[Rfam]
RNA sequence: GUGAAAGAGGUUCGCAAACUCCCUCUAUAAAAAACUAUAAAUGA
Number, nucleotide and partner (000 for none) at each position: 001g000002u000003g000004a000005a000006a026007g025008a024009g023010g022011u000012u000013c000014g000015c000016a036017a000018a000019c000020u000021c000022c010023c009024u008025c007026u006027a000028u000029a000030a000031a000032a000033a000034a000035c000036u016037a000038u000039a000040a000041a000042u000043g000044a000
A member of the RNA family "PreQ1 (pre queuosine) riboswitch aptamer" from Alkalihalophilus pseudofirmus, 44 nucleotides long. A reference for the family is Spitale et al. (2009), "The structural basis for recognition of the PreQ0 metabolite by an unusually small riboswitch aptamer domain", J Biol Chem. Its family is annotated with queuosine biosynthetic process in the Gene Ontology. Lineage of the source: Bacteria > Bacillota > Bacilli > Alkalihalophilus > Alkalihalophilus pseudofirmus. From the family's description: This family is a bacterial riboswitch that binds to the metabolite preQ1, an intermediate in the biosynthesis of the modified nucleoside queuosine from GTP. One example of this riboswitch is located in the leader of the Bacillus subtilis ykvJKLM (queCDEF) operon which encodes four genes necessary for queuosine production. PreQ1 binding to the riboswitch aptamer is thought to induce premature transcription termination within the leader to down-regulate expression of these genes.